The family of this 314-nucleotide RNA from Mycolicibacterium austroafricanum is "Mycobacterium smegmatis small RNA 1".
From the family's description: Mycobacterium smegmatis small RNA 1 is highly expressed during stationary phase of growth. Ms1 RNA directly interacts with RNA polymerase (RNAP), but in a different way than 6S, which is present in other bacteria. Ms1 does not require the presence of the main sigma factor for RNAP interaction. There is evidence that Ms1 RNA may function similar to 6S RNA in M. smegmatis which does not have 6S RNA.
RNA sequence: ACGGAAGCCGGGUGAGGCCAAGGUCGAGCCGGAAGAGAAGGCUCUAUCUCCCGAUCCCAGCUCCCGAGCACGGGUCCCGGAACCCACGCGGAGCACAUACCGCGAAAUAGGUAAAAGCGUUGCGGGCCUGCGGAAUUGCGAAGAACGGACGAUCACGACAGCCCUUUGGGUGGGGUUGCAGUCGUACCGCUUCGCAAGAACGCCGAGGCCAACCCACGCAACCCAGACAAGCACGCUUGGUAACCGGAAUUCGUGCUCGCGGGCGGCGAACCGAAGUACUUUCGAAUUACUUCGGGCGCCGCCCGCCUCGUUUU
Numbered sequence: 001a002c003g004g005a006a007g008c009c010g011g012g013u014g015a016g017g018c019c020a021a022g023g024u025c026g027a028g029c030c031g032g033a034a035g036a037g038a039a040g041g042c043u044c045u046a047u048c049u050c051c052c053g054a055u056c057c058c059a060g061c062u063c064c065c066g067a068g069c070a071c072g073g074g075u076c077c078c079g080g081a082a083c084c085c086a087c088g089c090g091g092a093g094c095a096c097a098u099a100c101c102g103c104g105a106a107a108u109a110g111g112u113a114a115a116a117g118c119g120u121u122g123c124g125g126g127c128c129u130g131c132g133g134a135a136u137u138g139c140g141a142a143g144a145a146c147g148g149a150c151g152a153u154c155a156c157g158a159c160a161g162c163c164c165u166u167u168g169g170g171u172g173g174g175g176u177u178g179c180a181g182u183c184g185u186a187c188c189g190c191u192u193c194g195c196a197a198g199a200a201c202g203c204c205g206a207g208g209c210c211a212a213c214c215c216a217c218g219c220a221a222c223c224c225a226g227a228c229a230a231g232c233a234c235g236c237u238u239g240g241u242a243a244c245c246g247g248a249a250u251u252c253g254u255g256c257u258c259g260c261g262g263g264c265g266g267c268g269a270a271c272c273g274a275a276g277u278a279c280u281u282u283c284g285a286a287u288u289a290c291u292u293c294g295g296g297c298g299c300c301g302c303c304c305g306c307c308u309c310g311u312u313u314u
Stems, first nucleotide, its partner, number of pairs: 003065002006062003010058003016052002021049002026044005066258009077247004084240003088236003093232002098113004119222006125210005130203003136197006146189002149185005159178007259306010271295007